[Rfam]
RNA sequence: AAGUCCCUUUUUUGUGUCUUAUGAUGAAAUUUCAUAGGGCAGAUUCUGAGCGGAGAAAUGAAAUUUCUCUCCACUGAUACUCCAUAUGACAUCUGAAGACACUAUAUAUUGU
Numbered sequence: 001a002a003g004u005c006c007c008u009u010u011u012u013u014g015u016g017u018c019u020u021a022u023g024a025u026g027a028a029a030u031u032u033c034a035u036a037g038g039g040c041a042g043a044u045u046c047u048g049a050g051c052g053g054a055g056a057a058a059u060g061a062a063a064u065u066u067c068u069c070u071c072c073a074c075u076g077a078u079a080c081u082c083c084a085u086a087u088g089a090c091a092u093c094u095g096a097a098g099a100c101a102c103u104a105u106a107u108a109u110u111g112u
Stems, first nucleotide, its partner, number of pairs: 012104001014102006029092002032089004037083003042078001045077002048074001050072001052070006
The record is a 112-nucleotide RNA sequence from Phoenicopterus ruber, which matches "Small nucleolar RNA SNORD90" in Rfam.
A search with the family's covariance model found it, with a score of 64 bits.
Gene Ontology terms of the family: nucleolus and RNA processing.
Rfam describes the family as follows. snoRNA HBII-295 belongs to the family of C/D snoRNAs. It is the human orthologue of the mouse MBII-295 and has no identified RNA target.
The family has 18 seed sequences and 545 matches in Rfam 15.1.